Shown here is a 94-nucleotide RNA sequence, a member of the family "Plastid-rps12 3UTR RNA". By type it is a cis-regulatory element. For this family Rfam cites "Retrograde signaling in plants: A critical review focusing on the GUN pathway and beyond" (Richter et al., Plant Commun, 2023). Plastid rpl20 is a non-coding RNA (ncRNA) recognised in plastids.

RNA sequence: UUGCUAUUGGUACAAAUCCAAUCACUUCCAUUUUGAAUUUAAACUGAGAAAGAAUUCCCCAUUAGUAGCAAAUGGUAUUCAUUAAGCAGGGAAA
Numbered sequence: 001u002u003g004c005u006a007u008u009g010g011u012a013c014a015a016a017u018c019c020a021a022u023c024a025c026u027u028c029c030a031u032u033u034u035g036a037a038u039u040u041a042a043a044c045u046g047a048g049a050a051a052g053a054a055u056u057c058c059c060c061a062u063u064a065g066u067a068g069c070a071a072a073u074g075g076u077a078u079u080c081a082u083u084a085a086g087c088a089g090g091g092a093a094a
Base pairs, nucleotide, nucleotide: 007021008020009019010018057091058090059089061082062081064079065078066077068076069075